Small nucleolar RNA psi28S-3316: a 132-nucleotide RNA sequence from Scaptodrosophila lebanonensis.
Taxonomically the source falls in Scaptodrosophila (Eukaryota, Mandibulata, Endopterygota, Brachycera).
Rfam's curators write: psi28S-3316 is a member of the H/ACA class of snoRNA. This family is responsible for guiding the modification of uridine 3316 in Drosophila 28S rRNA to pseudouridine.
Pairs were carried over by alignment from the consensus structure, which was predicted with RNAfold.
The match comes from Rfam's covariance-model search (108 bits).
Its family is annotated with nucleolus and RNA processing in the Gene Ontology.
RNA sequence: GGCACCUAAAAGCGUUUUCUUGCACGCUAACAUAUGCGCUUGAAAAUCGUAGUUGUGUGCCAGAGAAAACGUCACAGUAGCAUGUGACUUGAUUAAUGCAACAAAUCAAGUCCAAUUACACUGUUCACAUGU
Numbered sequence: 001g002g003c004a005c006c007u008a009a010a011a012g013c014g015u016u017u018u019c020u021u022g023c024a025c026g027c028u029a030a031c032a033u034a035u036g037c038g039c040u041u042g043a044a045a046a047u048c049g050u051a052g053u054u055g056u057g058u059g060c061c062a063g064a065g066a067a068a069a070c071g072u073c074a075c076a077g078u079a080g081c082a083u084g085u086g087a088c089u090u091g092a093u094u095a096a097u098g099c100a101a102c103a104a105a106u107c108a109a110g111u112c113c114a115a116u117u118a119c120a121c122u123g124u125u126c127a128c129a130u131g132u
Stems, first nucleotide, its partner, number of pairs: 001061005006055001012050003015046005022037002074124005082117001085114002087111004092106003